This 136-nucleotide RNA from Nannospalax galili belongs to the Rfam family "Small nucleolar RNA SNORA8". The base pairs follow the family's consensus structure, which was predicted with RNAfold. The source organism's lineage runs through Eukaryota, Eumetazoa, Eutheria, Myomorpha and Nannospalax. It scores 117 bits against the family's covariance model. Its family is annotated with nucleolus and RNA processing in the Gene Ontology.
[Rfam]
RNA sequence: CGCACUGCAUGGUAUCUGCACUCAGCAGCUCCCUCCUGCUGGUGUGUUCAAAGAACAGUGCGAUAGAAAUUCACUGGCAUCACUGUUUUUCUUGGAUUUAGUACCUAUUAAACCUGGUAUUUCUAUUGAUGCAGUU
Number, nucleotide and partner (000 for none) at each position: 001c000002g061003c060004a059005c058006u057007g056008c000009a000010u000011g000012g000013u000014a000015u054016c053017u052018g047019c046020a045021c044022u000023c042024a040025g039026c038027a037028g036029c000030u000031c000032c000033c000034u000035c000036c028037u027038g026039c025040u024041g000042g023043u000044g021045u020046g019047u018048u000049c000050a000051a000052a017053g016054a015055a000056c007057a006058g005059u004060g003061c002062g000063a000064u125065a124066g123067a122068a121069a120070u119071u117072c116073a115074c000075u000076g105077g104078c000079a102080u101081c000082a000083c000084u000085g000086u000087u000088u000089u000090u000091c000092u000093u000094g000095g000096a000097u000098u000099u000100a000101g080102u079103a000104c077105c076106u000107a000108u000109u000110a000111a000112a000113c000114c000115u073116g072117g071118u000119a070120u069121u068122u067123c066124u065125a064126u000127u000128g000129a000130u000131g000132c000133a000134g000135u000136u000